A member of the RNA family "Glycine riboswitch aptamer" from a Dermatophilaceae bacterium, 97 nucleotides long.
Pairs were carried over by alignment from the consensus structure.
RNA sequence: CGAACUGCAGCGGGAGAGCCCGUGCCCACCCGGCACGGCGCCGAAGGAGCAACUUCUCCCCAAGAAUCUCUCAGGCCCCCAUGACCGUUGCGGUGAG
Numbered sequence: 001c002g003a004a005c006u007g008c009a010g011c012g013g014g015a016g017a018g019c020c021c022g023u024g025c026c027c028a029c030c031c032g033g034c035a036c037g038g039c040g041c042c043g044a045a046g047g048a049g050c051a052a053c054u055u056c057u058c059c060c061c062a063a064g065a066a067u068c069u070c071u072c073a074g075g076c077c078c079c080c081a082u083g084a085c086c087g088u089u090g091c092g093g094u095g096a097g
Stems, first nucleotide, its partner, number of pairs: 006092008020038004040076003043072002047070003054062001